[Rfam]
RNA: Lysine riboswitch aptamer
Organism: Idiomarina loihiensis
RNA sequence: AGGCCGAGAAGAGGUGCGUACAUCAGGGACUUUUGAGCUUAGGCCGCCAAAGCCAGAGUUAAGUCGAAAGAGAGGGGAUGUCACGCCGAGGUAAUAUUGUCAUUUUGGCGCAAUGUUGCCGGUUGCAGGGUUUGAACACCCGCAACUGUCACCUUUCAGGUGGAGAGCUUCUGGUGUU
Numbered sequence: 001a002g003g004c005c006g007a008g009a010a011g012a013g014g015u016g017c018g019u020a021c022a023u024c025a026g027g028g029a030c031u032u033u034u035g036a037g038c039u040u041a042g043g044c045c046g047c048c049a050a051a052g053c054c055a056g057a058g059u060u061a062a063g064u065c066g067a068a069a070g071a072g073a074g075g076g077g078a079u080g081u082c083a084c085g086c087c088g089a090g091g092u093a094a095u096a097u098u099g100u101c102a103u104u105u106u107g108g109c110g111c112a113a114u115g116u117u118g119c120c121g122g123u124u125g126c127a128g129g130g131u132u133u134g135a136a137c138a139c140c141c142g143c144a145a146c147u148g149u150c151a152c153c154u155u156u157c158a159g160g161u162g163g164a165g166a167g168c169u170u171c172u173g174g175u176g177u178u
Stems, first nucleotide, its partner, number of pairs: 007172005016086004021080004030070007090120011121147006129140003149163005